Shown here is a 141-nucleotide RNA from Microcaecilia unicolor, a member of the family "U4 spliceosomal RNA".
About the family: U4 small nuclear RNA (U4 snRNA) is a component of the major U2-dependent spliceosome.
The match comes from Rfam's covariance-model search (77 bits).
Rfam classes the family as a spliceosomal small nuclear RNA.
RNA sequence: AGCUUUGCGCAGAGACAUUAUCAUAGUUGAUGAGGUUUAACCGAGGCGUAGUAAUUUCUAGUUGAAAACUUUUCUCAAUACCCAACUGUGACGGCUUGAAAAAUAGUAACCAUUUGCAAUUUUUCAUAGUCUCUUUUGAGG
Dot-bracket structure: ...................((.((.(((.....(((...)))..))))).)).................................(.(((...(((........)))...)))..).............((((....))))
Numbered sequence: 001a002g003c004u005u006u007g008c009g010c011a012g013a014g015a016c017a018u019u020a021u022c023a024u025a026g027u028u029g030a031u032g033a034g035g036u037u038u039a040a041c042c043g044a045g046g047c048g049u050a051g052u053a054a055u056u057u058c059u060a061g062u063u064g065a066a067a068a069c070u071u072u073u074c075u076c077a078a079u080a081c082c083c084a085a086c087u088g089u090g091a092c093g094g095c096u097u098g099a100a101a102a103a104u105a106g107u108a109a110c111c112a113u114u115u116g117c118a119a120u121u122u123u124u125c126a127u128a129g130u131c132u133c134u135u136u137u138g139a140g141g
Stems, first nucleotide, its partner, number of pairs: 020052002023049002026047003034042003086116001088113003094107003130141004
A reference for the family is Zwieb (1997), "The uRNA database", Nucleic Acids Res.
The family is grouped with related families in Rfam's "U4 clan".